The family of this 67-nucleotide sequence is "S15-Flavobacteria ribosomal protein leader".
Rfam classes the family as a cis-regulatory leader.
Rfam's curators put it in the seed alignment.
RNA sequence: UAUCUUUGCCGCCUGAUUAUCAUAGUGGUAAUCUGUACAUAAAAAUCAUUAAACUAAUAUUGGCAUG
Numbered sequence: 001u002a003u004c005u006u007u008g009c010c011g012c013c014u015g016a017u018u019a020u021c022a023u024a025g026u027g028g029u030a031a032u033c034u035g036u037a038c039a040u041a042a043a044a045a046u047c048a049u050u051a052a053a054c055u056a057a058u059a060u061u062g063g064c065a066u067g
Stems, first nucleotide, its partner, number of pairs: 015033007